[Rfam]
RNA sequence: GUGCGAGGACGACCUCCCCCACUUGGGUUUUUGAUUGGGACGACCCAA
Numbered sequence: 001g002u003g004c005g006a007g008g009a010c011g012a013c014c015u016c017c018c019c020c021a022c023u024u025g026g027g028u029u030u031u032u033g034a035u036u037g038g039g040a041c042g043a044c045c046c047a048a
Base pairs, nucleotide, nucleotide: 001020003018005016006015007014008013035048036047037046038045039044